The record is a 68-nucleotide RNA sequence from Sapajus apella, which matches "mir-1285 microRNA precursor family" in Rfam.

[Rfam]
RNA sequence: GAGAUACCUCACUUUGUUGCCCAGGCUGGUCUCAAACUCCUGGUGUGAGCACCAAAGUGAGACCCUAU
Numbered sequence: 001g002a003g004a005u006a007c008c009u010c011a012c013u014u015u016g017u018u019g020c021c022c023a024g025g026c027u028g029g030u031c032u033c034a035a036a037c038u039c040c041u042g043g044u045g046u047g048a049g050c051a052c053c054a055a056a057g058u059g060a061g062a063c064c065c066u067a068u
Base pairs, nucleotide, nucleotide: 008061009060010059011058012057013056014055019050020049022047023046025044032043033042034041

Description
The organism belongs to Sapajus, within Eukaryota. Rfam links the family to the GO terms miRNA-mediated post-transcriptional gene silencing and RISC complex. The family's consensus secondary structure was predicted with RNAalifold.